Shown here is a 263-nucleotide RNA sequence from Trema orientale, a member of the family "RNase MRP". Rfam's curators write: RNase MRP is an enzymatically active ribonucleoprotein with two distinct roles in eukaryotes.

RNA sequence: CUACCACAAGGUGAAGUGAGUGGGCCGCGGUUCUACUAAAAGUGGAACUAGGCCCAGGAAAGUCCCCGGGCCCAUUACUGCAGAGAUGCAGCCUCGGAAACGAGUGAAGUCCGACGGCUUUGGGGGUCCCCUCAUCUUCGGAUGAAGGGCUGAGACGAGUGUGGAGCCCCAUGGGACUCCCAGCCCGGAGCCUCCUGGCCGACUAAACAGUUAUUCACUUGGUCCCUUCGGACUAACUGAACGGGGCUUACAUCCUUGUGGUA
Numbered sequence: 001c002u003a004c005c006a007c008a009a010g011g012u013g014a015a016g017u018g019a020g021u022g023g024g025c026c027g028c029g030g031u032u033c034u035a036c037u038a039a040a041a042g043u044g045g046a047a048c049u050a051g052g053c054c055c056a057g058g059a060a061a062g063u064c065c066c067c068g069g070g071c072c073c074a075u076u077a078c079u080g081c082a083g084a085g086a087u088g089c090a091g092c093c094u095c096g097g098a099a100a101c102g103a104g105u106g107a108a109g110u111c112c113g114a115c116g117g118c119u120u121u122g123g124g125g126g127u128c129c130c131c132u133c134a135u136c137u138u139c140g141g142a143u144g145a146a147g148g149g150c151u152g153a154g155a156c157g158a159g160u161g162u163g164g165a166g167c168c169c170c171a172u173g174g175g176a177c178u179c180c181c182a183g184c185c186c187g188g189a190g191c192c193u194c195c196u197g198g199c200c201g202a203c204u205a206a207a208c209a210g211u212u213a214u215u216c217a218c219u220u221g222g223u224c225c226c227u228u229c230g231g232a233c234u235a236a237c238u239g240a241a242c243g244g245g246g247c248u249u250a251c252a253u254c255c256u257u258g259u260g261g262u263a
Stems, first nucleotide, its partner, number of pairs: 002263010014220006022055004030048007060249003064246004079090004093104004116192003124181003135176004147169004157162001222233004